[Rfam]
Background
Purine riboswitch aptamer: a 99-nucleotide sequence from Clostridium sp. CAG:307.

RNA sequence: CUACCAUAUUAUUGGUUAUCUUGUAUAAUUGCUUUAAUUGGUAAGUGAGUUUCUACGCCAAACCGUAAAUUUGGUACUACAAGAAAGAAAAGGAUGGUG
Numbered sequence: 001c002u003a004c005c006a007u008a009u010u011a012u013u014g015g016u017u018a019u020c021u022u023g024u025a026u027a028a029u030u031g032c033u034u035u036a037a038u039u040g041g042u043a044a045g046u047g048a049g050u051u052u053c054u055a056c057g058c059c060a061a062a063c064c065g066u067a068a069a070u071u072u073g074g075u076a077c078u079a080c081a082a083g084a085a086a087g088a089a090a091a092g093g094a095u096g097g098u099g
Base pairs, nucleotide, nucleotide: 019084020083021082022081023080024079025078029048030047031046032045033044034043057075058074059073060072061071062070
Lineage of the source: Bacteria > Bacillati > Eubacteriales > Clostridiaceae > Clostridium.
The family's consensus secondary structure is taken from published work.